[Rfam]
RNA: Nuclear RNase P
Organism: Diatraea saccharalis
RNA sequence: UCAAUGUUAAUCUCGUACUUGGGGUAUACUAACAGAGUGCUUGUCACUCCUGUCGCCUCGGGAAGGUCUGAGUAAAGGUCAUUGUGUGCCCAAAGACACUCUAGACGGGUGCUUCUCUAACAGGGAUGAUGGGGGAACCAGAAAUCAAGGUGUGGUGUUAAGCUGGUGAUGACCGGCUCAUUGGAGUCGGUAGGAGGCGCAGACACCUGUCACCUUUGGAAACUCCCAUGACCAGCUCUUUUAGCACAAUCUACGAGAUGGCUUUGGUCAUAACUCAAUUCAGACUAGUCUUUCAUUGA
Numbered sequence: 001u002c003a004a005u006g007u008u009a010a011u012c013u014c015g016u017a018c019u020u021g022g023g024g025u026a027u028a029c030u031a032a033c034a035g036a037g038u039g040c041u042u043g044u045c046a047c048u049c050c051u052g053u054c055g056c057c058u059c060g061g062g063a064a065g066g067u068c069u070g071a072g073u074a075a076a077g078g079u080c081a082u083u084g085u086g087u088g089c090c091c092a093a094a095g096a097c098a099c100u101c102u103a104g105a106c107g108g109g110u111g112c113u114u115c116u117c118u119a120a121c122a123g124g125g126a127u128g129a130u131g132g133g134g135g136a137a138c139c140a141g142a143a144a145u146c147a148a149g150g151u152g153u154g155g156u157g158u159u160a161a162g163c164u165g166g167u168g169a170u171g172a173c174c175g176g177c178u179c180a181u182u183g184g185a186g187u188c189g190g191u192a193g194g195a196g197g198c199g200c201a202g203a204c205a206c207c208u209g210u211c212a213c214c215u216u217u218g219g220a221a222a223c224u225c226c227c228a229u230g231a232c233c234a235g236c237u238c239u240u241u242u243a244g245c246a247c248a249a250u251c252u253a254c255g256a257g258a259u260g261g262c263u264u265u266g267g268u269c270a271u272a273a274c275u276c277a278a279u280u281c282a283g284a285c286u287a288g289u290c291u292u293u294c295a296u297u298g299a
Stems, first nucleotide, its partner, number of pairs: 001299004009291001012257006021059005035049005068283005077233004097111005112128001114126004129229007148215003258271005